[Rfam]
RNA: Pseudomonas sRNA P18
Nucleotides: 135
Stems, first nucleotide, its partner, number of pairs: 002067010012052002015048003019043003023039001068133002075096003079092003098131002102127002108121003
Number, partner (000 for none) and nucleotide at each position: 001000g002067g003066c004065g005064g006063c007062g008061u009060g010059c011058u012052g013051c014000u015048c016047a017046g018000c019043c020042c021041g022000u023039u024000u025000u026000u027000g028000g029000u030000g031000u032000a033000c034000g035000u036000g037000c038000u039023g040000u041021u042020g043019g044000c045000c046017u047016u048015g049000c050000u051013g052012c053000u054000g055000a056000c057000g058011g059010g060009u061008g062007u063006g064005c065004u066003g067002c068133g069132u070000c071000u072000g073000c074000u075096g076095c077094u078000a079092a080091g081090g082000c083000u084000g085000a086000c087000c088000c089000c090081u091080u092079u093000g094077g095076g096075c097000a098131g099130u100000u101000g102127g103126g104000c105000a106000u107000g108121g109120c110119a111000u112000g113000a114000g115000g116000c117000g118000c119110u120109g121108u122000u123000c124000g125000a126103u127102u128000g129000u130099g131098c132069g133068u134000u135000g